A member of the RNA family "eL15-Euryarchaeota ribosomal protein leader", 50 nucleotides long.
It is one of the family's seed sequences.

RNA sequence: CCCGUCGCGGACGGGCCGGGAUGUGGCCGCAGACGCGGCUGAACCACGAA
Numbered sequence: 001c002c003c004g005u006c007g008c009g010g011a012c013g014g015g016c017c018g019g020g021a022u023g024u025g026g027c028c029g030c031a032g033a034c035g036c037g038g039c040u041g042a043a044c045c046a047c048g049a050a
Stems, first nucleotide, its partner, number of pairs: 001015005018045002025040005